[Rfam]
This 48-nucleotide RNA belongs to the Rfam family "uup RNA".
It is one of the family's seed sequences.
RNA sequence: ACAAAAUCUGCUCUGUACAAUUUAAGCCGAUGAAGCAUUGUACAGAGC
Numbered sequence: 001a002c003a004a005a006a007u008c009u010g011c012u013c014u015g016u017a018c019a020a021u022u023u024a025a026g027c028c029g030a031u032g033a034a035g036c037a038u039u040g041u042a043c044a045g046a047g048c
Stems, first nucleotide, its partner, number of pairs: 011047005017041003